[Rfam]
RNA sequence: GCGGGCCUGGCCUACUAUGCCAUGGUGGGGAACUGGGCUAAGGUUAUG
Numbered sequence: 001g002c003g004g005g006c007c008u009g010g011c012c013u014a015c016u017a018u019g020c021c022a023u024g025g026u027g028g029g030g031a032a033c034u035g036g037g038c039u040a041a042g043g044u045u046a047u048g
Base pairs, nucleotide, nucleotide: 006043007042008041010038011037012036013035014034018031020029021028
A member of the RNA family "Hepatitis C virus stem-loop SL1412 RNA", 48 nucleotides long. Pairs were carried over by alignment from the consensus structure, which was predicted with RNAfold. By type it is a cis-regulatory element. HCV_SL1412 is a stem-loop in the coding region of the C (core) gene.